SAM riboswitch aptamer (S box leader): a 107-nucleotide RNA sequence from Gracilibacillus dipsosauri.
The family's consensus secondary structure is taken from published work.
The match comes from Rfam's covariance-model search (90 bits).
[Rfam]
RNA sequence: UUCUCAUCCAGAGAGGGGGAGGGACUGACCCUAUGAUCUCUCGGCAACCAACUUUUAUUCAAAGUAUGGUGCCAACUUCAGACGUAUUUUAAUACGAAAGAUGAGAA
Numbered sequence: 001u002u003c004u005c006a007u008c009c010a011g012a013g014a015g016g017g018g019g020a021g022g023g024a025c026u027g028a029c030c031c032u033a034u035g036a037u038c039u040c041u042c043g044g045c046a047a048c049c050a051a052c053u054u055u056u057a058u059u060c061a062a063a064g065u066a067u068g069g070u071g072c073c074a075a076c077u078u079c080a081g082a083c084g085u086a087u088u089u090u091a092a093u094a095c096g097a098a099a100g101a102u103g104a105g106a107a
Stems, first nucleotide, its partner, number of pairs: 001107008013042005021031003025081004043073004048069002051065004077099001083096005